[Rfam]
This 130-nucleotide RNA from Paenochrobactrum gallinarii belongs to the Rfam family "Alphaproteobacterial sRNA ar35". A reference for the family is del Val et al. (2012), "A survey of sRNA families in alpha-proteobacteria", RNA Biol.
RNA sequence: UCGGGCAAGACAUCUGCUUGUAACCUGCAAGCAGCUUAAUUCUGUAGCCGCCUUCUUGUGACCACGGAUGUACUGGCACAGGAGUGGCUAAGAGUUUUGAAGGCUGAGCGAUUGCUCAGCCUUUUUUAUU
Numbered sequence: 001u002c003g004g005g006c007a008a009g010a011c012a013u014c015u016g017c018u019u020g021u022a023a024c025c026u027g028c029a030a031g032c033a034g035c036u037u038a039a040u041u042c043u044g045u046a047g048c049c050g051c052c053u054u055c056u057u058g059u060g061a062c063c064a065c066g067g068a069u070g071u072a073c074u075g076g077c078a079c080a081g082g083a084g085u086g087g088c089u090a091a092g093a094g095u096u097u098u099g100a101a102g103g104c105u106g107a108g109c110g111a112u113u114g115c116u117c118a119g120c121c122u123u124u125u126u127u128a129u130u
Stems, first nucleotide, its partner, number of pairs: 003042003007037003016032005045090006053084004059078002062076003094129002099124011